[Rfam]
RNA sequence: AAAAAGGGCUUCUGCCGUGAUUGGCACAAGAUGGGUGGGGAUUUCCACUCUUCUUGCGGAAUCGCCAUCAAGAGAUUUCGGAAGCACAAUUUUUAACCCAGGGGAUGCUGGUGAUCUCAUGUCCCGGCGCCCCG
Numbered sequence: 001a002a003a004a005a006g007g008g009c010u011u012c013u014g015c016c017g018u019g020a021u022u023g024g025c026a027c028a029a030g031a032u033g034g035g036u037g038g039g040g041a042u043u044u045c046c047a048c049u050c051u052u053c054u055u056g057c058g059g060a061a062u063c064g065c066c067a068u069c070a071a072g073a074g075a076u077u078u079c080g081g082a083a084g085c086a087c088a089a090u091u092u093u094u095a096a097c098c099c100a101g102g103g104g105a106u107g108c109u110g111g112u113g114a115u116c117u118c119a120u121g122u123c124c125c126g127g128c129g130c131c132c133c134g
Stems, first nucleotide, its partner, number of pairs: 008085005013026005027056005033050006057080007102132003107128005113123003